RNA sequence: GCGUUCCUGCGCGGUGCGACGGAGCUUCAAAUAUCCCCGGGGCCUUAUCGAUCCUCAUGGGAGCUGUCCCUGACUAGGCCCCUGGGCCUGGAUAUACGGCGCCCACCUACGUUGUAGGUUCCCGGGAUCGAUCGCUGCCGACGGCUAAGCGGUGCGCC
Numbered sequence: 001g002c003g004u005u006c007c008u009g010c011g012c013g014g015u016g017c018g019a020c021g022g023a024g025c026u027u028c029a030a031a032u033a034u035c036c037c038c039g040g041g042g043c044c045u046u047a048u049c050g051a052u053c054c055u056c057a058u059g060g061g062a063g064c065u066g067u068c069c070c071u072g073a074c075u076a077g078g079c080c081c082c083u084g085g086g087c088c089u090g091g092a093u094a095u096a097c098g099g100c101g102c103c104c105a106c107c108u109a110c111g112u113u114g115u116a117g118g119u120u121c122c123c124g125g126g127a128u129c130g131a132u133c134g135c136u137g138c139c140g141a142c143g144g145c146u147a148a149g150c151g152g153u154g155c156g157c158c
Base pairs, nucleotide, nucleotide: 002156003155005154007152008151009150010149013146014145015144017143018142034127035126036125037124039122040121041120042119043118044117059104060103061102063100064099065098066097067096072093074091075090076089077088078087079086080085
Shown here is a 158-nucleotide RNA from Segnochrobactrum spirostomi, a member of the family "6S / SsrS RNA". The source organism's lineage runs through Bacteria, Pseudomonadati, Pseudomonadota, Segnochrobactraceae and Segnochrobactrum. E. coli 6S RNA was the first non coding RNA to be sequenced, but its function was unknown until recently. The base pairs follow the family's consensus structure, which is taken from published work.